[Rfam]
RNA sequence: AACAGAAAGAAGGAGCUCCCUUCAGUCCAAGCACAGAGGGAGAGGAAUGAAAACUAUCUCCCGCAUCAUUCAUGCAAUCACAGUAGCGCCAACCAACAAAUCCCCUUUCUACUGAGUGGUUGAAUGAAUGAGUCGGCAGCUAAUUCAGACCCCUAAUCUCAUCCAUGAGUGGGCAGGAGGAAGCUCUCUCAUACCAUUCC
Numbered sequence: 001a002a003c004a005g006a007a008a009g010a011a012g013g014a015g016c017u018c019c020c021u022u023c024a025g026u027c028c029a030a031g032c033a034c035a036g037a038g039g040g041a042g043a044g045g046a047a048u049g050a051a052a053a054c055u056a057u058c059u060c061c062c063g064c065a066u067c068a069u070u071c072a073u074g075c076a077a078u079c080a081c082a083g084u085a086g087c088g089c090c091a092a093c094c095a096a097c098a099a100a101u102c103c104c105c106u107u108u109c110u111a112c113u114g115a116g117u118g119g120u121u122g123a124a125u126g127a128a129u130g131a132g133u134c135g136g137c138a139g140c141u142a143a144u145u146c147a148g149a150c151c152c153c154u155a156a157u158c159u160c161a162u163c164c165a166u167g168a169g170u171g172g173g174c175a176g177g178a179g180g181a182a183g184c185u186c187u188c189u190c191a192u193a194c195c196a197u198u199c200c
Base pairs, nucleotide, nucleotide: 013186014185015184016183017182019180020179023176025174026173027172028171029170036163058139059138061136062135063134067130068129069128070127075122
Dot-bracket structure: ............(((((.((..(.(((((......(.....................((.(((...((((....(..............................................)....))))...))).)).......................)......))))).)..)).)))))..............